[Rfam]
RNA sequence: UCGUGAGUCGCUGUAAGCCGUAAGGCUGGGCGACUGGCUCCCUGUCAUUCAGGACGAAUGGCGCGGAGUUUCACCAGAAAAAGGAA
Numbered sequence: 001u002c003g004u005g006a007g008u009c010g011c012u013g014u015a016a017g018c019c020g021u022a023a024g025g026c027u028g029g030g031c032g033a034c035u036g037g038c039u040c041c042c043u044g045u046c047a048u049u050c051a052g053g054a055c056g057a058a059u060g061g062c063g064c065g066g067a068g069u070u071u072c073a074c075c076a077g078a079a080a081a082a083g084g085a086a
Base pairs, nucleotide, nucleotide: 007034008033009032010031011030012029014028015027018025019024036070037069038068039067040066041065043063044062045061046060047059048058049057050056

The record is an 86-nucleotide sequence from Pseudomonas sp. TTU2014-080ASC, which matches "gyrA RNA" in Rfam. Taxonomically the source falls in Pseudomonas (Bacteria, Pseudomonadati, Gammaproteobacteria, Pseudomonadaceae).